RNA sequence: ACCUUUCACACUUUAGCAGCACGUAAAUAUUGGUGUGUGAGAAAACAAAACCCAACCCCAAUAUUACGUGUGCUGCUUCAGUGAGGUAGGG
Numbered sequence: 001a002c003c004u005u006u007c008a009c010a011c012u013u014u015a016g017c018a019g020c021a022c023g024u025a026a027a028u029a030u031u032g033g034u035g036u037g038u039g040a041g042a043a044a045a046c047a048a049a050a051c052c053c054a055a056c057c058c059c060a061a062u063a064u065u066a067c068g069u070g071u072g073c074u075g076c077u078u079c080a081g082u083g084a085g086g087u088a089g090g091g
Base pairs, nucleotide, nucleotide: 002090003089004088006086015077016076017075018074019073020072021071022070023069026065027064028063029062030061031060032059033058035056036055